[Rfam]
RNA sequence: CUUACCACGUUUCCUUAUCAUUUCUUUUAUCCAGUUUUACUCAGCACUGGACGGAGAACUGAUAAGGGCUUGUGGGGGA
Numbered sequence: 001c002u003u004a005c006c007a008c009g010u011u012u013c014c015u016u017a018u019c020a021u022u023u024c025u026u027u028u029a030u031c032c033a034g035u036u037u038u039a040c041u042c043a044g045c046a047c048u049g050g051a052c053g054g055a056g057a058a059c060u061g062a063u064a065a066g067g068g069c070u071u072g073u074g075g076g077g078g079a
Stems, first nucleotide, its partner, number of pairs: 012068009022058006030050002
Record summary
This 79-nucleotide RNA sequence from Homarus americanus belongs to the Rfam family "mir-184 microRNA precursor family". Its family is annotated with RISC complex and gene silencing by miRNA in the Gene Ontology. The family's consensus secondary structure was predicted with PFOLD.